[Rfam]
RNA sequence: AAUAGGGGAAGGAAGGCUAAAACCGCGACGUCCUGUCGCAAUACCUUCAUGACCCACAUCCUGUGGG
Numbered sequence: 001a002a003u004a005g006g007g008g009a010a011g012g013a014a015g016g017c018u019a020a021a022a023c024c025g026c027g028a029c030g031u032c033c034u035g036u037c038g039c040a041a042u043a044c045c046u047u048c049a050u051g052a053c054c055c056a057c058a059u060c061c062u063g064u065g066g067g
Stems, first nucleotide, its partner, number of pairs: 012048005025039005053067005
Dot-bracket structure: ...........(((((........(((((.....)))))....)))))....(((((.....)))))